A member of the RNA family "pan motif" from Paenibacillus lycopersici, 125 nucleotides long. The organism belongs to Paenibacillus, within Bacteria. Pairs were carried over by alignment from the consensus structure, which is taken from published work. The match comes from Rfam's covariance-model search (42 bits).
RNA sequence: GGGGCGGUAUCGCGCAUCGCGAACCGCACCCAGGCAGAAGAAGCAUGUAGCAGAAUAAGGAUGAUACGCCACAUCAGCAAGACUGUGCGAUUCUGCUCUGAGCCGUCAGGGACCGAGACAGAAGG
Number, nucleotide and partner (000 for none) at each position: 001g031002g030003g029004g027005c026006g025007g024008u023009a000010u022011c021012g000013c000014g000015c000016a000017u000018c000019g000020c000021g011022a010023a008024c007025c006026g005027c004028a000029c003030c002031c001032a000033g000034g000035c000036a000037g000038a000039a000040g000041a000042a000043g000044c000045a000046u000047g000048u000049a000050g000051c000052a000053g000054a000055a000056u000057a000058a000059g000060g000061a000062u000063g000064a000065u000066a000067c000068g000069c000070c000071a000072c000073a000074u000075c000076a000077g000078c000079a000080a000081g000082a000083c000084u000085g000086u000087g000088c000089g000090a000091u000092u000093c121094u120095g119096c117097u116098c115099u000100g113101a000102g000103c111104c110105g000106u000107c000108a000109g000110g104111g103112a000113c100114c000115g098116a097117g096118a000119c095120a094121g093122a000123a000124g000125g000